[Rfam]
RNA sequence: CAUCGGCUGCGGGCCCCUCUGGCGGGAUGCACUUCGCUGCUCCCGUGAUGUCGGAGCCGAUGC
Numbered sequence: 001c002a003u004c005g006g007c008u009g010c011g012g013g014c015c016c017c018u019c020u021g022g023c024g025g026g027a028u029g030c031a032c033u034u035c036g037c038u039g040c041u042c043c044c045g046u047g048a049u050g051u052c053g054g055a056g057c058c059g060a061u062g063c
Stems, first nucleotide, its partner, number of pairs: 006057003010053003022046005029041001

This 63-nucleotide sequence from Methylobacterium symbioticum belongs to the Rfam family "terC RNA". The source organism's lineage runs through Bacteria, Pseudomonadota, Alphaproteobacteria, Methylobacteriaceae and Methylobacterium. By type it is a cis-regulatory element. The match comes from Rfam's covariance-model search (55 bits).